Rfam assigns this 229-nucleotide part of an RNA from Actinopolymorpha singaporensis to the family "Bacterial large subunit ribosomal RNA". Clan: LSU clan. NCBI's taxonomy places the organism under Bacteria, Bacillati, Propionibacteriales, Actinopolymorphaceae, Actinopolymorpha.
RNA sequence: GAGUUAGUGGUGCGUGGCGAGGUUAACCCGUGUGGGGAAGCCGUAGCGAAAGCGAGUCCGAACAGGGCGUUGAGUCGCGUGCUCUAGACCCGAAGCGGAGUGAUCUACCCAUGGGCAGGGUGAAGCGCGGGUAAGACCGCGUGGAGGCCCGAACCCACCGGCGUUGAAAAGCCGGGGGAUGACCUGUGGGUAGGGGUGAAAGGCCAAUCAAACUCCGUGAUAGCUGGUU
Numbered sequence: 001g002a003g004u005u006a007g008u009g010g011u012g013c014g015u016g017g018c019g020a021g022g023u024u025a026a027c028c029c030g031u032g033u034g035g036g037g038a039a040g041c042c043g044u045a046g047c048g049a050a051a052g053c054g055a056g057u058c059c060g061a062a063c064a065g066g067g068c069g070u071u072g073a074g075u076c077g078c079g080u081g082c083u084c085u086a087g088a089c090c091c092g093a094a095g096c097g098g099a100g101u102g103a104u105c106u107a108c109c110c111a112u113g114g115g116c117a118g119g120g121u122g123a124a125g126c127g128c129g130g131g132u133a134a135g136a137c138c139g140c141g142u143g144g145a146g147g148c149c150c151g152a153a154c155c156c157a158c159c160g161g162c163g164u165u166g167a168a169a170a171g172c173c174g175g176g177g178g179a180u181g182a183c184c185u186g187u188g189g190g191u192a193g194g195g196g197u198g199a200a201a202g203g204c205c206a207a208u209c210a211a212a213c214u215c216c217g218u219g220a221u222a223g224c225u226g227g228u229u
Stems, first nucleotide, its partner, number of pairs: 005086003009083010021042004027036003046053002056068004089227002092224001096217006105193011116181001118150004125142006154178003158175005195205003

It scores 2784 bits against the family's covariance model. The base pairs follow the family's consensus structure, which is taken from published work.